[Rfam]
RNA sequence: GGGUGGCCCAAGUGCAGUGCUCUUUACAGCUAAUUGAUUACAGCUAGUUACGGAUUUCUUCCUUUUCCAUUCCCACUGCUUCCCUUGAUUAGCCUUAA
Numbered sequence: 001g002g003g004u005g006g007c008c009c010a011a012g013u014g015c016a017g018u019g020c021u022c023u024u025u026a027c028a029g030c031u032a033a034u035u036g037a038u039u040a041c042a043g044c045u046a047g048u049u050a051c052g053g054a055u056u057u058c059u060u061c062c063u064u065u066u067c068c069a070u071u072c073c074c075a076c077u078g079c080u081u082c083c084c085u086u087g088a089u090u091a092g093c094c095u096u097a098a
Stems, first nucleotide, its partner, number of pairs: 001094002004091003008087001010086002014082001016077004028060002032056004

The family of this 98-nucleotide RNA from Homo sapiens is "Y RNA". Y RNAs are components of the Ro ribonucleoprotein particle (Ro RNP), in association with Ro60 and La proteins. By type it is a non-coding RNA gene.